Record summary:
The family of this 174-nucleotide RNA from Brochothrix thermosphacta is "Lysine riboswitch aptamer". Riboswitches are metabolite binding domains within certain messenger RNAs that serve as precision sensors for their corresponding targets. Pairs were carried over by alignment from the consensus structure, which is taken from published work.

RNA sequence: AAUGUGGAUAGAGGCGCGAGAGCUAUCAGUAGGGUAUUGGAUGUGUUUACGAGCACAGUUGAAAGUAUUUGAAAGGGGUUAUCGCCGAAGUGGGGGACGUUCGUUAAUGAACCUGCUGGUGUGUUGUAUAAGAUAUAACACAUUGUCAAGAAGUCUUGGAGGGCUAUUCUCAUU
Numbered sequence: 001a002a003u004g005u006g007g008a009u010a011g012a013g014g015c016g017c018g019a020g021a022g023c024u025a026u027c028a029g030u031a032g033g034g035u036a037u038u039g040g041a042u043g044u045g046u047u048u049a050c051g052a053g054c055a056c057a058g059u060u061g062a063a064a065g066u067a068u069u070u071g072a073a074a075g076g077g078g079u080u081a082u083c084g085c086c087g088a089a090g091u092g093g094g095g096g097a098c099g100u101u102c103g104u105u106a107a108u109g110a111a112c113c114u115g116c117u118g119g120u121g122u123g124u125u126g127u128a129u130a131a132g133a134u135a136u137a138a139c140a141c142a143u144u145g146u147c148a149a150g151a152a153g154u155c156u157u158g159g160a161g162g163g164c165u166a167u168u169c170u171c172a173u174u
Stems, first nucleotide, its partner, number of pairs: 006169006016085004021080004032070007089117006098109003118144011146159005
The organism belongs to Brochothrix, within Bacteria.